[Rfam]
RNA sequence: AUGGCGAUAGCCGAAAAGCCACAAAAAUAGAGUAGGCA
Numbered sequence: 001a002u003g004g005c006g007a008u009a010g011c012c013g014a015a016a017a018g019c020c021a022c023a024a025a026a027a028u029a030g031a032g033u034a035g036g037c038a
Stems, first nucleotide, its partner, number of pairs: 002021004010037003
RNA: DUF805b RNA
Organism: Tenacibaculum jejuense